[Rfam]
RNA: Glycine riboswitch aptamer
Organism: Sphingomonas ginsenosidivorax
RNA sequence: UGGCACCGCGCGGGAGAGCGUGACCCGGUCCUUUGAGGGCCGGCGAGCCGCCGAAGGAGCAACCACCCCGGAAUCUCUCAGGCACAAGGGACCGCGCGGGGCUG
Dot-bracket structure: .....((((((((......((.........................)).(((((..(((...((.....))...))))).)))........)))))))).....
Numbered sequence: 001u002g003g004c005a006c007c008g009c010g011c012g013g014g015a016g017a018g019c020g021u022g023a024c025c026c027g028g029u030c031c032u033u034u035g036a037g038g039g040c041c042g043g044c045g046a047g048c049c050g051c052c053g054a055a056g057g058a059g060c061a062a063c064c065a066c067c068c069c070g071g072a073a074u075c076u077c078u079c080a081g082g083c084a085c086a087a088g089g090g091a092c093c094g095c096g097c098g099g100g101g102c103u104g
Stems, first nucleotide, its partner, number of pairs: 006099008020048002050083003053079002057077003063071002